[Rfam]
RNA sequence: GGUAAGUAAUAGCAAACUUGUCGAAAGGCAAGGACGCAAAGCCACGGGCCUGUCGUGCUGAUGAACGCGUGUUCUCAGACCACUAUGGCAGCCGGGUUUCCGGU
Numbered sequence: 001g002g003u004a005a006g007u008a009a010u011a012g013c014a015a016a017c018u019u020g021u022c023g024a025a026a027g028g029c030a031a032g033g034a035c036g037c038a039a040a041g042c043c044a045c046g047g048g049c050c051u052g053u054c055g056u057g058c059u060g061a062u063g064a065a066c067g068c069g070u071g072u073u074c075u076c077a078g079a080c081c082a083c084u085a086u087g088g089c090a091g092c093c094g095g096g097u098u099u100c101c102g103g104u
Stems, first nucleotide, its partner, number of pairs: 012037002017032006040098004045094003048089003055083003
Dot-bracket structure: ...........((...((((((....))))))...))..((((.((((((....(((.......................)))...)))..)))))))......
Shown here is a 104-nucleotide RNA from Paenalicyclobacillus ferrooxydans, a member of the family "c-di-GMP-I riboswitch aptamer". Rfam links the family to the GO term cyclic-di-GMP binding.